[Rfam]
Notes: Rfam assigns this 388-nucleotide RNA sequence from Coprinopsis marcescibilis to the family "RNase MRP". The family's RNA type in Rfam is ribozyme. Lineage of the source: Eukaryota > Opisthokonta > Agaricomycetes > Agaricineae > Coprinopsis.

RNA sequence: CUGCCGUAUGAAGAAUCGCUGUCGCAGCUCACGCACAGGGAGCUUCGUGCUCUCCUCUUCUGCUGUGGGGAAAGUCCCCGGAGAUACAGAGAAUAUCCUCGUUCUGCUAGGGAAAGCCACCGGUUCUAAGCAUGUCGGUCAGGGAUGAGGAUGGUGGAAACGAUUUGGGUGGUCGAGACUUCGCGUCUCGUCACUCUCCGUUCCAUUCACUCUGUUGUCUACACUUGAGUCCUCCAGGUCGGCGACGGCGGGGAUGCGCAAAGAUAUGAGCGUGUUCUUUGCUCGGCUUGGAGGACAAUGGUUAGGCGCUUUGUUGCUCAUAGCCACAGUUAUGCGAUUGUAGACCUUUCCAGGUCGUCAACUCAAUGGGGCUCACUCUCGUACGGCG
Numbered sequence: 001c002u003g004c005c006g007u008a009u010g011a012a013g014a015a016u017c018g019c020u021g022u023c024g025c026a027g028c029u030c031a032c033g034c035a036c037a038g039g040g041a042g043c044u045u046c047g048u049g050c051u052c053u054c055c056u057c058u059u060c061u062g063c064u065g066u067g068g069g070g071a072a073a074g075u076c077c078c079c080g081g082a083g084a085u086a087c088a089g090a091g092a093a094u095a096u097c098c099u100c101g102u103u104c105u106g107c108u109a110g111g112g113a114a115a116g117c118c119a120c121c122g123g124u125u126c127u128a129a130g131c132a133u134g135u136c137g138g139u140c141a142g143g144g145a146u147g148a149g150g151a152u153g154g155u156g157g158a159a160a161c162g163a164u165u166u167g168g169g170u171g172g173u174c175g176a177g178a179c180u181u182c183g184c185g186u187c188u189c190g191u192c193a194c195u196c197u198c199c200g201u202u203c204c205a206u207u208c209a210c211u212c213u214g215u216u217g218u219c220u221a222c223a224c225u226u227g228a229g230u231c232c233u234c235c236a237g238g239u240c241g242g243c244g245a246c247g248g249c250g251g252g253g254a255u256g257c258g259c260a261a262a263g264a265u266a267u268g269a270g271c272g273u274g275u276u277c278u279u280u281g282c283u284c285g286g287c288u289u290g291g292a293g294g295a296c297a298a299u300g301g302u303u304a305g306g307c308g309c310u311u312u313g314u315u316g317c318u319c320a321u322a323g324c325c326a327c328a329g330u331u332a333u334g335c336g337a338u339u340g341u342a343g344a345c346c347u348u349u350c351c352a353g354g355u356c357g358u359c360a361a362c363u364c365a366a367u368g369g370g371g372c373u374c375a376c377u378c379u380c381g382u383a384c385g386g387c388g
Base pairs, nucleotide, nucleotide: 002388003387004386005385006384007383008382009381010380011379014339015338016337017336018335019334022068023067024066025065026064027063028062038054039053040052041051042050043049073373074372076371077370078369079368088094229296230295231294236289237288238287239286240285241284246281247280248279256273257272258271259270343356344355345354346353
A search with the family's covariance model found it, with a score of 109 bits.
The base pairs follow the family's consensus structure, which is taken from published work.